[Rfam]
RNA sequence: CCAGCUCUCUUUGCCUUUUGGCUUAGAUCAAGUGUAGUAUCUGUUCUUUUCAGUUUAAUCUCUGAAACUGGUCUAUUUGACCAGAAUCAAAUGAUUAUACUUAUUUUUGUCACUAGGAGGGUUUCCGCUGGGCUUGCCCAUGAUUCCCUCCACUGUGUCCCUCCUAUCACACUGCCUGGAGGCGACGCGAACCUUU
Numbered sequence: 001c002c003a004g005c006u007c008u009c010u011u012u013g014c015c016u017u018u019u020g021g022c023u024u025a026g027a028u029c030a031a032g033u034g035u036a037g038u039a040u041c042u043g044u045u046c047u048u049u050u051c052a053g054u055u056u057a058a059u060c061u062c063u064g065a066a067a068c069u070g071g072u073c074u075a076u077u078u079g080a081c082c083a084g085a086a087u088c089a090a091a092u093g094a095u096u097a098u099a100c101u102u103a104u105u106u107u108u109g110u111c112a113c114u115a116g117g118a119g120g121g122u123u124u125c126c127g128c129u130g131g132g133c134u135u136g137c138c139c140a141u142g143a144u145u146c147c148c149u150c151c152a153c154u155g156u157g158u159c160c161c162u163c164c165u166a167u168c169a170c171a172c173u174g175c176c177u178g179g180a181g182g183c184g185a186c187g188c189g190a191a192c193c194u195u196u
Stems, first nucleotide, its partner, number of pairs: 008027003013022003048067006068084006116151006129140004154189006160182005